[Rfam]
RNA sequence: GGCGCUCAAGGUCAUCCCCCCCUGACCUUGGGCGUCGACGGCCCCGGCAUCCCCCCGCCGGGGCCGUCCCCU
Numbered sequence: 001g002g003c004g005c006u007c008a009a010g011g012u013c014a015u016c017c018c019c020c021c022c023u024g025a026c027c028u029u030g031g032g033c034g035u036c037g038a039c040g041g042c043c044c045c046g047g048c049a050u051c052c053c054c055c056c057g058c059c060g061g062g063g064c065c066g067u068c069c070c071c072u
Stems, first nucleotide, its partner, number of pairs: 002036001004033010037068012
This 72-nucleotide RNA sequence from Ornithinimicrobium sp. CNJ-824 belongs to the Rfam family "6C RNA". The literature on the family includes a 2007 paper in Nucleic Acids Res by Weinberg et al., "Identification of 22 candidate structured RNAs in bacteria using the CMfinder comparative genomics pipeline". The source organism's lineage runs through Bacteria, Bacillati, Micrococcales, Ornithinimicrobiaceae and Ornithinimicrobium.